[Rfam]
RNA sequence: AGAGGUCACAAGUUCAAGGCCAUAGCAGAAACACUCAUGGUGUGGCCCUGUCAGAUGCUGACAAAUCUGCAAAUUAUGCU
Numbered sequence: 001a002g003a004g005g006u007c008a009c010a011a012g013u014u015c016a017a018g019g020c021c022a023u024a025g026c027a028g029a030a031a032c033a034c035u036c037a038u039g040g041u042g043u044g045g046c047c048c049u050g051u052c053a054g055a056u057g058c059u060g061a062c063a064a065a066u067c068u069g070c071a072a073a074u075u076a077u078g079c080u
Stems, first nucleotide, its partner, number of pairs: 018047004024080004029075002031043003052069005
The record is an 80-nucleotide RNA sequence from Crocodylus porosus, which matches "Mammalian CPEB3 ribozyme" in Rfam. Lineage of the source: Eukaryota > Chordata > Longirostres > Crocodylidae > Crocodylus.